Nitrogen stress-induced RNA 1: a 62-nucleotide RNA from Fischerella thermalis. The family's RNA type in Rfam is small RNA. The organism belongs to Fischerella thermalis, within Bacteria.

[Rfam]
RNA sequence: UGGUAGAUGCACCCUGAUAACAAACUCCCCUUGCUAGCUGUCGGUUGCUAGGGGAUUUUUUU
Numbered sequence: 001u002g003g004u005a006g007a008u009g010c011a012c013c014c015u016g017a018u019a020a021c022a023a024a025c026u027c028c029c030c031u032u033g034c035u036a037g038c039u040g041u042c043g044g045u046u047g048c049u050a051g052g053g054g055a056u057u058u059u060u061u062u
Base pairs, nucleotide, nucleotide: 002013003012004011027054028053029052030051031050033048034047036045
Description:
For this family Rfam cites "Heterocyst-specific transcription of NsiR1, a non-coding RNA encoded in a tandem array of direct repeats in cyanobacteria" (Ionescu et al., J Mol Biol, 2010). The family has 17 seed sequences and 962 matches in Rfam 15.1.